[Rfam]
RNA sequence: CCCGCGGCUAGACGGAAAGACCCCGUGCACCUUUACUACAGCUUGGCAUUGGAUUUUGGGCGUGUAUGUGUAGGAUAGGUGGGAGGCGGUGAAGUGGGGGCGCCAGCUCUCAUGGAGCCAACCUUGAAAUACCACCCUUAUGCGUUUAGAGUUCUAACCCGGGUCCGUAAACCGGAUCGGGGACAGUGCCUGGUGGGUAGUUUGACUGGGGCGGUCGCCUCCAAAAGAGUAACGGAGGCGCGCGAAGGUUCCCUCAGGCUGAUUGGAAACCAGCCGUAGAGUGUAAAGGCAUAAGGGAGCCUGACUGUGAGAGAGACAUCUCGAUCAGGGACGAAAGUCGGUCUUAGUGAUCCGGCGGUUCCACAUGGAAGGGCCGUCGCUCAACGGAUAAAAGGUACGCCGGGGAUAACAGGCUGAUCUCCCCCAAGAGUUCACAUCGACGGGGAGGUUUGGCACCUCGAUGUCGGCUCAUCGCAUCCUGGGGCUGGAGCAGGUCCCAAGGGUUCGGCUGUUCGCCGAUUAAAGCGGUACGUGAGCUGGGUUUAAAACGUCGUGAGACAGUUUGGUCCCUAUCUACCGUGGGCGGA
Dot-bracket structure: (((((((..(((.((......((((.(((((((.((((...((.((((..((((((((((((((((.(.........(((((..(((......((((((((....))))))))...)))............)))))).))))))))))))))))...(((.((((((.....))))))))).....)))).))....))))..((((.....))))((((((...........))))))(.((....((((((((.(((((.........)))))...))((......))....))))))....(((...(((......)))...))).(((....))).))..........(((((((.((........))))))))).....)......)))))..))))))........(((.((((((((...((.......))...)))))))..))))..........(((((((((((..((.((((((......))))))...)).(((((.....))))).....)))))..)..)))).).....(((((((....))).))))....))..))).)))))))....
Bacterial large subunit ribosomal RNA: a 587-nucleotide part of an RNA from Syntrophobacter fumaroxidans. The match comes from Rfam's covariance-model search (2935 bits). The organism belongs to Syntrophobacter fumaroxidans, within Bacteria.